[Rfam]
RNA sequence: GAAACACACUUCUGUAAGUGGCUUUGGAUAAAAGCGUCUGCUAAAUGACUAAUG
Number, nucleotide and partner (000 for none) at each position: 001g000002a000003a000004a000005c000006a000007c000008a000009c000010u000011u000012c000013u043014g041015u040016a039017a000018g000019u000020g000021g035022c034023u033024u032025u031026g000027g000028a000029u000030a000031a025032a024033a023034g022035c021036g000037u000038c000039u016040g015041c014042u000043a013044a000045a000046u000047g000048a000049c000050u000051a000052a000053u000054g000
Rfam assigns this 54-nucleotide RNA from Muraenolepis orangiensis to the family "UnaL2 LINE 3' element". A search with the family's covariance model found it, with a score of 61 bits. Pairs were carried over by alignment from the consensus structure, which is taken from published work. About the family: The eel long interspersed element (LINE) UnaL2 and its partner short interspersed element (SINE) share a conserved 3' tail containing a stem-loop that is critical for their retrotransposition. By type it is a cis-regulatory element.